[Rfam]
RNA: Bacterial RNase P class A
RNA sequence: GAAGCGGGACAGACCAUCGCUGCUGCCAGUGUAAUGCUGGCGGGGGAGGAAAGUCCGGGCUCCAUAGAGCAGGAUGCUGGCUAACGGCCAGGCGGCGAGAGCCGACGGAAAGUGCAACAGAGAGCUGAACCGCCAGUUUGCCAAGUUGAACGAUCGAUUGAAGCGAUUGGGAUUGGUGAAAAGGUAAGGGUGAAAAGGUGUCCUCGUCAGGGGAGCCCCGCAAGGGGUCGGUAAGAGCGCACCGCGGCGCUGGUAACAGUCGCUGGCAGGGUAAACCCCAUUCGGAGCAAGACCAAGCAGUAGGCGUUGAGGUUGCUCGCUGAGUCUACGGGUAGGUUGCUUGAGCGCGUCAGUAAUGGCGCGCCUAGAGGAAUGAUGGUCACGGCUGGCAACAGCCGGACAGGACCCGGCUUAUCGGCCCGCUUCGCAC
Numbered sequence: 001g002a003a004g005c006g007g008g009a010c011a012g013a014c015c016a017u018c019g020c021u022g023c024u025g026c027c028a029g030u031g032u033a034a035u036g037c038u039g040g041c042g043g044g045g046g047a048g049g050a051a052a053g054u055c056c057g058g059g060c061u062c063c064a065u066a067g068a069g070c071a072g073g074a075u076g077c078u079g080g081c082u083a084a085c086g087g088c089c090a091g092g093c094g095g096c097g098a099g100a101g102c103c104g105a106c107g108g109a110a111a112g113u114g115c116a117a118c119a120g121a122g123a124g125c126u127g128a129a130c131c132g133c134c135a136g137u138u139u140g141c142c143a144a145g146u147u148g149a150a151c152g153a154u155c156g157a158u159u160g161a162a163g164c165g166a167u168u169g170g171g172a173u174u175g176g177u178g179a180a181a182a183g184g185u186a187a188g189g190g191u192g193a194a195a196a197g198g199u200g201u202c203c204u205c206g207u208c209a210g211g212g213g214a215g216c217c218c219c220g221c222a223a224g225g226g227g228u229c230g231g232u233a234a235g236a237g238c239g240c241a242c243c244g245c246g247g248c249g250c251u252g253g254u255a256a257c258a259g260u261c262g263c264u265g266g267c268a269g270g271g272u273a274a275a276c277c278c279c280a281u282u283c284g285g286a287g288c289a290a291g292a293c294c295a296a297g298c299a300g301u302a303g304g305c306g307u308u309g310a311g312g313u314u315g316c317u318c319g320c321u322g323a324g325u326c327u328a329c330g331g332g333u334a335g336g337u338u339g340c341u342u343g344a345g346c347g348c349g350u351c352a353g354u355a356a357u358g359g360c361g362c363g364c365c366u367a368g369a370g371g372a373a374u375g376a377u378g379g380u381c382a383c384g385g386c387u388g389g390c391a392a393c394a395g396c397c398g399g400a401c402a403g404g405a406c407c408c409g410g411c412u413u414a415u416c417g418g419c420c421c422g423c424u425u426c427g428c429a430c
Stems, first nucleotide, its partner, number of pairs: 001426008010417001011415001012381007020046002023043006051413003055410005060287004067318004072283005077091005092106001093104004107278002112276002114272002130189002132185003137180008197243004244267001245265005250259003291338004300329006311321003345364008
Dot-bracket structure: ((((((((.(((((((((.((.((((((.........)))))).))....[[[.[[[[[((((...[[[[.((((((((((.....)))))(((((....)))).)((...((((..............(((((..((((((((............................))))))))..)))..)).......((((.......................................))))(((((((((....))).))))).)...))..)))))))))))))...((((.....((((((.....(((.]]]])))..)))))).....))))......((((((((....))))))))..........)))))))........................]]]]]]]].).).))))))))....